About this RNA: The record is a 78-nucleotide sequence, which matches "Xanthine riboswitch aptamer (NMT1 RNA)" in Rfam. A reference for the family is Yu and Breaker (2020), "A bacterial riboswitch class senses xanthine and uric acid to regulate genes associated with purine oxidation", RNA. Its family is annotated with purine nucleobase binding in the Gene Ontology.
[Rfam]
RNA sequence: GGCAAGAGUAGAAGCGUUCAGCGCUGCAGCGUCUGCCCACCAGGGUGCGGAGGCUGUAGGCGGGUCAUUGCUCUUGAA
Numbered sequence: 001g002g003c004a005a006g007a008g009u010a011g012a013a014g015c016g017u018u019c020a021g022c023g024c025u026g027c028a029g030c031g032u033c034u035g036c037c038c039a040c041c042a043g044g045g046u047g048c049g050g051a052g053g054c055u056g057u058a059g060g061c062g063g064g065u066c067a068u069u070g071c072u073c074u075u076g077a078a
Base pairs, nucleotide, nucleotide: 005074006073007072008071009070010069015063019064021061022060024059025058026057027056028055029054030053